[Rfam]
RNA sequence: GUCCGCUGUGCUCUAGCAGCACGUAAAUACUGGAGUCUAGGAUUGCUUGGUUGCCCUCCAGUAUUGCUUUGCUGCUUUAGUCAAGCUGGG
Numbered sequence: 001g002u003c004c005g006c007u008g009u010g011c012u013c014u015a016g017c018a019g020c021a022c023g024u025a026a027a028u029a030c031u032g033g034a035g036u037c038u039a040g041g042a043u044u045g046c047u048u049g050g051u052u053g054c055c056c057u058c059c060a061g062u063a064u065u066g067c068u069u070u071g072c073u074g075c076u077u078u079a080g081u082c083a084a085g086c087u088g089g090g
Base pairs, nucleotide, nucleotide: 002089003088005086006085015076016075017074018073019072020071021070023068026065027064028063029062030061031060032059033058034057035056
Shown here is a 90-nucleotide sequence from Phrynocephalus forsythii, a member of the family "mir-15 microRNA precursor family". This family represents the related mir-15a and mir-15b sequences. In humans miR-15a and miR-16 are clustered within 0.5 kb at 13q14. This region has been shown to be deleted in more than half of B cell chronic lymphocytic leukaemias (CLL). Both miR-15a and miR-16 are deleted or down-regulated in more than two thirds of CLL cases. The mature sequence is excised from the 5' arm of the hairpin. The family has 164 seed sequences and 2,045 matches in Rfam 15.1. The match comes from Rfam's covariance-model search (60 bits).